Record summary
A member of the RNA family "MIR480 microRNA precursor family" from Populus tomentosa, 132 nucleotides long. The base pairs follow the family's consensus structure, which was predicted with WAR. The family has 69 seed sequences and 3,070 matches in Rfam 15.1.
Nucleotides: 132
Stems, first nucleotide, its partner, number of pairs: 005129001007127001008125002014120002018116002024111002027107001029105003
Number, partner (000 for none) and nucleotide at each position: 001000u002000a003000a004000u005129a006000u007127a008125u009124u010000u011000u012000a013000a014120a015119u016000a017000u018116g019115u020000c021000u022000c023000u024111a025110u026000u027107u028000a029105a030104u031103u032000a033000u034000a035000a036000u037000a038000u039000a040000u041000u042000c043000a044000c045000a046000c047000c048000u049000a050000a051000u052000u053000a054000a055000u056000u057000a058000c059000a060000g061000u062000u063000a064000c065000u066000c067000a068000u069000u070000a071000u072000u073000a074000c075000a076000a077000g078000a079000a080000u081000g082000c083000a084000u085000u086000a087000a088000c089000a090000u091000u092000g093000a094000a095000a096000a097000a098000c099000a100000g101000a102000u103031a104030a105029u106000a107027a108000c109000u110025a111024u112000u113000a114000u115019a116018u117000a118000a119015a120014u121000a122000a123000u124009a125008a126000c127007u128000u129005u130000u131000a132000a

NCBI's taxonomy places the organism under Eukaryota, eudicotyledons, Gunneridae, fabids, Populus.